[Rfam]
RNA sequence: CGCCGCCGUGCGGGAGAGUUCCGGGUAACCCCGGACGCCGAAGGAGCAGCACCUCUCCGUCAAUCUCUCAGGCAAAAGGACCGUACGGGCUUC
Numbered sequence: 001c002g003c004c005g006c007c008g009u010g011c012g013g014g015a016g017a018g019u020u021c022c023g024g025g026u027a028a029c030c031c032c033g034g035a036c037g038c039c040g041a042a043g044g045a046g047c048a049g050c051a052c053c054u055c056u057c058c059g060u061c062a063a064u065c066u067c068u069c070a071g072g073c074a075a076a077a078g079g080a081c082c083g084u085a086c087g088g089g090c091u092u093c
Base pairs, nucleotide, nucleotide: 006088007087008086009085010084011083012082013081020035021034022033023032037073038072039071040069041068044067045066046065051060052059
Glycine riboswitch aptamer: a 93-nucleotide RNA from Nocardia brasiliensis. Pairs were carried over by alignment from the consensus structure. A search with the family's covariance model found it, with a score of 68 bits.